This 134-nucleotide RNA from Neogale vison belongs to the Rfam family "Small nucleolar RNA SNORA14". About the family: ACA14 is a member of the H/ACA class of snoRNA that guide the sites of modification of uridines to pseudouridines. The family's consensus secondary structure was predicted with RNAfold. The match comes from Rfam's covariance-model search (128 bits). Lineage of the source: Eukaryota > Opisthokonta > Chordata > Theria > Neogale.
[Rfam]
RNA sequence: CUGCAUUCCUAAACCCUCUUGGUGGCCUCCCUGCGCACGCUUCCAGGAUAUGAGCGAAUGCUACAGAGACUGCAGGGAGUCCAAAGGGCUGCGCUCCUGCGGUGGCUCAGUCUUAUUUCAUACCUGCGACAUCU
Numbered sequence: 001c002u003g004c005a006u007u008c009c010u011a012a013a014c015c016c017u018c019u020u021g022g023u024g025g026c027c028u029c030c031c032u033g034c035g036c037a038c039g040c041u042u043c044c045a046g047g048a049u050a051u052g053a054g055c056g057a058a059u060g061c062u063a064c065a066g067a068g069a070c071u072g073c074a075g076g077g078a079g080u081c082c083a084a085a086g087g088g089c090u091g092c093g094c095u096c097c098u099g100c101g102g103u104g105g106c107u108c109a110g111u112c113u114u115a116u117u118u119c120a121u122a123c124c125u126g127c128g129a130c131a132u133c134u
Base pairs, nucleotide, nucleotide: 003061004060005059006058008054010052011051017048018047019046020045021044022043024041025040026039065134066133067132071128072127073126074125075124076123085114086113087112088111089110090109091108093106094105097102
Rfam links the family to the GO terms nucleolus and RNA processing. It is annotated as an H/ACA-box small nucleolar RNA.